About this RNA
Actinobacteria sRNA Ms_IGR-7: a 117-nucleotide RNA from Parafrankia colletiae.
[Rfam]
RNA sequence: UUGCAGUGCCCUCUCGAUCUGGUGGACGGAAGCGUAGGGAACUUCCAUCCUCCCGACUCGGAGGGCACUUUCGCGCCAGGAACCCCGACGGACAGGAAUAAACAGCGGUACAUCCAG
Number, nucleotide and partner (000 for none) at each position: 001u000002u000003g071004c000005a069006g068007u067008g066009c065010c064011c063012u062013c061014u000015c060016g059017a058018u000019c000020u055021g054022g053023u000024g050025g049026a048027c000028g000029g045030a000031a043032g042033c000034g000035u000036a000037g000038g000039g000040a000041a000042c032043u031044u000045c029046c000047a000048u026049c025050c024051u000052c000053c022054c021055g020056a000057c000058u017059c016060g015061g013062a012063g011064g010065g009066c008067a007068c006069u005070u000071u003072c000073g000074c000075g000076c000077c000078a000079g000080g000081a000082a000083c000084c000085c000086c000087g000088a000089c000090g000091g000092a000093c000094a000095g000096g115097a000098a113099u112100a000101a000102a109103c000104a000105g000106c000107g000108g000109u102110a000111c000112a099113u098114c000115c096116a000117g000
The match comes from Rfam's covariance-model search (47 bits).